[Rfam]
RNA sequence: CAAGACCUCUGACAUGACACAACAUCCUGCAGCGAUGUUGUGCGACCUGCAGUGUCAGUCGGAGCCCUCG
Numbered sequence: 001c002a003a004g005a006c007c008u009c010u011g012a013c014a015u016g017a018c019a020c021a022a023c024a025u026c027c028u029g030c031a032g033c034g035a036u037g038u039u040g041u042g043c044g045a046c047c048u049g050c051a052g053u054g055u056c057a058g059u060c061g062g063a064g065c066c067c068u069c070g
Base pairs, nucleotide, nucleotide: 001070003068004067007064009062010061011060012059013058021039022038023037024036025035026034044056045055046054
RNA: bZIP non canonical Hac1/Xbp1 intron
Organism: Ascosphaera apis